Background:
SAM (S-adenosyl methionine) riboswitch aptamer: a 115-nucleotide RNA sequence from Streptomyces sp. NP160. Taxonomically the source falls in Streptomyces (Bacteria, Bacillati, Actinomycetota, Actinomycetes).
[Rfam]
Nucleotides: 115
Stems, first nucleotide, its partner, number of pairs: 001078004009038001011037006021030002039065003044061003047056002081104006088097003
Number, partner (000 for none) and nucleotide at each position: 001078g002077g003076u004075c005000a006000u007000g008000a009038g010000u011037g012036g013035c014034a015033g016032c017000a018000c019000u020000g021030a022029g023000c024000c025000c026000u027000g028000g029022c030021u031000c032016g033015c034014u035013g036012c037011c038009c039065a040064g041063c042000a043000a044061c045060c046059c047056c048055c049000u050000c051000u052000c053000g054000c055048g056047g057000c058000g059046g060045g061044g062000u063041g064040c065039u066000c067000c068000a069000g070000g071000u072000g073000a074000a075004g076003a077002c078001c079000g080000g081104g082103c083102g084101a085100c086099g087000a088097c089096u090095c091000g092000a093000u094000c095090g096089g097088g098000c099086c100085g101084u102083c103082g104081u105000c106000a107000g108000c109000g110000c111000g112000a113000g114000u115000c
Pairs were carried over by alignment from the consensus structure, which is taken from published work.